Shown here is a 93-nucleotide RNA from Lentibacillus populi, a member of the family "Guanidine-I riboswitch aptamer".
RNA sequence: AUAACAGUUUUCUAGGGUUCCACAAUGUAAAUUGGACUGGUCCGAGAGAAAACGCACGGAACGUGUACACGGAGGGAUAAAAGCCCGGGAGGA
Numbered sequence: 001a002u003a004a005c006a007g008u009u010u011u012c013u014a015g016g017g018u019u020c021c022a023c024a025a026u027g028u029a030a031a032u033u034g035g036a037c038u039g040g041u042c043c044g045a046g047a048g049a050a051a052a053c054g055c056a057c058g059g060a061a062c063g064u065g066u067a068c069a070c071g072g073a074g075g076g077a078u079a080a081a082a083g084c085c086c087g088g089g090a091g092g093a
Stems, first nucleotide, its partner, number of pairs: 007053006015043002020040002023034004054066005068088001070091001074086003